[Rfam]
RNA: Mammalian CPEB3 ribozyme
RNA sequence: AUGCCAUUUUCAGGGGCCACAGCAGAAGCGUUCAACUUAUGGCUCUCGUCAGAUUUCUAUUAAUCUGUGAAUUUGGCU
Numbered sequence: 001a002u003g004c005c006a007u008u009u010u011c012a013g014g015g016g017c018c019a020c021a022g023c024a025g026a027a028g029c030g031u032u033c034a035a036c037u038u039a040u041g042g043c044u045c046u047c048g049u050c051a052g053a054u055u056u057c058u059a060u061u062a063a064u065c066u067g068u069g070a071a072u073u074u075g076g077c078u
Stems, first nucleotide, its partner, number of pairs: 013046006021078003025074003028040001030038001050067006